Iron response element I: a 36-nucleotide sequence from Moschus moschiferus. Pairs were carried over by alignment from the consensus structure, which is taken from published work. On this family, see Hentze et al., Science 1987: "Identification of the iron-responsive element for the translational regulation of human ferritin mRNA". The source organism's lineage runs through Eukaryota, Chordata, Craniata, Boreoeutheria and Moschus. Rfam classes the family as a cis-regulatory element. A search with the family's covariance model found it, with a score of 36 bits.
[Rfam]
RNA sequence: UGAUUUCCUACUUCAACAGUGCUUGGAGGGAACCCA
Numbered sequence: 001u002g003a004u005u006u007c008c009u010a011c012u013u014c015a016a017c018a019g020u021g022c023u024u025g026g027a028g029g030g031a032a033c034c035c036a
Stems, first nucleotide, its partner, number of pairs: 001036002005032004012027005017021001